[Rfam]
RNA sequence: CCGUGACAAGGGCAAACCUGCCUAAAGGCCGGGACGCAAAGCCAUAGGGUCUAAGGUGCUUAAAGCGCUAUGACAGCCUGGUUGCCGCA
Numbered sequence: 001c002c003g004u005g006a007c008a009a010g011g012g013c014a015a016a017c018c019u020g021c022c023u024a025a026a027g028g029c030c031g032g033g034a035c036g037c038a039a040a041g042c043c044a045u046a047g048g049g050u051c052u053a054a055g056g057u058g059c060u061u062a063a064a065g066c067g068c069u070a071u072g073a074c075a076g077c078c079u080g081g082u083u084g085c086c087g088c089a
Stems, first nucleotide, its partner, number of pairs: 012037002017032002020029003040083004046079003049074003056068004
Dot-bracket structure: ...........((...((.(((....))).))...))..((((..((((((....((((.....))))...)))..)))))))......

A member of the RNA family "c-di-GMP-I riboswitch aptamer" from Heliomicrobium modesticaldum, 89 nucleotides long. A search with the family's covariance model found it, with a score of 78 bits. Taxonomically the source falls in Heliomicrobium modesticaldum (Bacteria, Eubacteriales, Heliobacteriaceae, Heliomicrobium).